[Rfam]
RNA sequence: GUCGCGGCUAGAUUUAGCGGCCGAACGCCAGCUACCCGAGCUGGCCCGCCGCGACGUUUUCUUACUUCGGG
Numbered sequence: 001g002u003c004g005c006g007g008c009u010a011g012a013u014u015u016a017g018c019g020g021c022c023g024a025a026c027g028c029c030a031g032c033u034a035c036c037c038g039a040g041c042u043g044g045c046c047c048g049c050c051g052c053g054a055c056g057u058u059u060u061c062u063u064a065c066u067u068c069g070g071g
Stems, first nucleotide, its partner, number of pairs: 001055008011022001013020002027045005035071006
int-alpA RNA: a 71-nucleotide RNA from Novipirellula maiorica. A search with the family's covariance model found it, with a score of 38 bits. The family's RNA type in Rfam is small RNA. NCBI's taxonomy places the organism under Bacteria, Pseudomonadati, Planctomycetia, Novipirellula, Novipirellula maiorica. Acidobacteria (1 example), Planctomycetes (1 example), Proteobacteria.